This 74-nucleotide RNA from Alligator sinensis belongs to the Rfam family "Mammalian CPEB3 ribozyme". It scores 44 bits against the family's covariance model. For this family Rfam cites "Autocatalytic RNA cleavage in the human beta-globin pre-mRNA promotes transcription termination" (Teixeira et al., Nature, 2004). The base pairs follow the family's consensus structure, which is taken from published work.

RNA sequence: ACAGAAGCACAGGCCACACCAGGAGCGCUCACAGUGCGGCCCUGCCAGAGUCCAACGAAUCUGUGGAUUCUGCU
Numbered sequence: 001a002c003a004g005a006a007g008c009a010c011a012g013g014c015c016a017c018a019c020c021a022g023g024a025g026c027g028c029u030c031a032c033a034g035u036g037c038g039g040c041c042c043u044g045c046c047a048g049a050g051u052c053c054a055a056c057g058a059a060u061c062u063g064u065g066g067a068u069u070c071u072g073c074u
Stems, first nucleotide, its partner, number of pairs: 012041004018074001020072005025037003046063004051058002